[Rfam]
RNA: SAM riboswitch aptamer (S box leader)
RNA sequence: CUCUUAUCCAGAGAGGCGGAGGGACUGGCCCAAUGAAGCCUCGGCAACCGAUUUCAGGUGCCAAUUCCAGCAAAGCGACACCCGCUUUGAAAGAUAAGAG
Numbered sequence: 001c002u003c004u005u006a007u008c009c010a011g012a013g014a015g016g017c018g019g020a021g022g023g024a025c026u027g028g029c030c031c032a033a034u035g036a037a038g039c040c041u042c043g044g045c046a047a048c049c050g051a052u053u054u055c056a057g058g059u060g061c062c063a064a065u066u067c068c069a070g071c072a073a074a075g076c077g078a079c080a081c082c083c084g085c086u087u088u089g090a091a092a093g094a095u096a097a098g099a100g
Stems, first nucleotide, its partner, number of pairs: 001100008013042005021031003025070004043062004048058002066092001071089006